[Rfam]
RNA sequence: UAUGUAUGGAGAGAGCUUCCUUGAGUCCAUUCACAGGUCGUGAUAUGAUCCAAUUAGCUUCCGACUCAUUCAUCCAAAUACCGAGUCUCACCAAAAUUCUAACAAGACUUGUUAAAUGAAUGAAUGAUGCGGUAGACAAAUUGGAUCAUUGAUUCUUUUUGAUUGGACUGAAGGGAGCUCCCUUUCUUCUU
Dot-bracket structure: ............((((((((...((((((......(.....................((.(((...((((....(..........................................)....))))...))).)).....................)......))))))...))))))))...........